[Rfam]
RNA sequence: CGGUCGGCAGUUCACCAAGGCGUCACUACUUCUUUGAAGAGCUAAACCUGCCA
Numbered sequence: 001c002g003g004u005c006g007g008c009a010g011u012u013c014a015c016c017a018a019g020g021c022g023u024c025a026c027u028a029c030u031u032c033u034u035u036g037a038a039g040a041g042c043u044a045a046a047c048c049u050g051c052c053a
Base pairs, nucleotide, nucleotide: 002016003015004014029039030038031037032036
The record is a 53-nucleotide RNA from Cohaesibacter marisflavi, which matches "COG3860 RNA" in Rfam. The organism belongs to Cohaesibacter, within Bacteria.